[Rfam]
This 79-nucleotide RNA sequence from Paenibacillus sp. J2TS4 belongs to the Rfam family "pemK RNA".
Lineage of the source: Bacteria > Bacillati > Bacillota > Bacilli > Paenibacillus.

RNA sequence: AUAAUGAUACUUACGGUUUGAACGCUUCACAGCAUUGACCGUCGCGCCAUCAGCAUGGGGCGGGGUGGAAUUCCCAUGU
Numbered sequence: 001a002u003a004a005u006g007a008u009a010c011u012u013a014c015g016g017u018u019u020g021a022a023c024g025c026u027u028c029a030c031a032g033c034a035u036u037g038a039c040c041g042u043c044g045c046g047c048c049a050u051c052a053g054c055a056u057g058g059g060g061c062g063g064g065g066u067g068g069a070a071u072u073c074c075c076a077u078g079u
Base pairs, nucleotide, nucleotide: 012076013042014041015040016039017038018037043062044061045060047058048057049056063075064074065073

Notes
A search with the family's covariance model found it, with a score of 53 bits.